[Rfam]
RNA: glmS glucosamine-6-phosphate activated ribozyme aptamer
RNA sequence: AAAUGUUGAUUAGCGCCAUGUACCUCUAUUGGGUCGGAAAUUUAGAGGUUAACGAGGUAGGGAGUUAUCGAAGUAUUCGGCGGAUACUCUCUCAUGUACUUGGACGUGUGAUAUGUCGUUAAAAGGGCAGGUAACUGCAGAACAACAACGAUAUAACCAAGACCA
Numbered sequence: 001a002a003a004u005g006u007u008g009a010u011u012a013g014c015g016c017c018a019u020g021u022a023c024c025u026c027u028a029u030u031g032g033g034u035c036g037g038a039a040a041u042u043u044a045g046a047g048g049u050u051a052a053c054g055a056g057g058u059a060g061g062g063a064g065u066u067a068u069c070g071a072a073g074u075a076u077u078c079g080g081c082g083g084a085u086a087c088u089c090u091c092u093c094a095u096g097u098a099c100u101u102g103g104a105c106g107u108g109u110g111a112u113a114u115g116u117c118g119u120u121a122a123a124a125g126g127g128c129a130g131g132u133a134a135c136u137g138c139a140g141a142a143c144a145a146c147a148a149c150g151a152u153a154u155a156a157c158c159a160a161g162a163c164c165a
Base pairs, nucleotide, nucleotide: 022049023048024047025046026045027044028043030040059092060091061090062089063088068080069079070078071077093108094107095106096105097104112155113154114153115152116151117150118149127138128137129136130135